[Rfam]
RNA sequence: AAGAGAGAACAUGGCAAGAUGUUGGCAUAGCUGUUGUGUUUUGGGCCCUGCUAUGCCUCCAUAUUGCCAACUUUUCCUUCC
Numbered sequence: 001a002a003g004a005g006a007g008a009a010c011a012u013g014g015c016a017a018g019a020u021g022u023u024g025g026c027a028u029a030g031c032u033g034u035u036g037u038g039u040u041u042u043g044g045g046c047c048c049u050g051c052u053a054u055g056c057c058u059c060c061a062u063a064u065u066g067c068c069a070a071c072u073u074u075u076c077c078u079u080c081c
Base pairs, nucleotide, nucleotide: 005076006075007074008073009072012069013068014067015066016065017064019062020061021060024057025056026055027054028053029052030051031050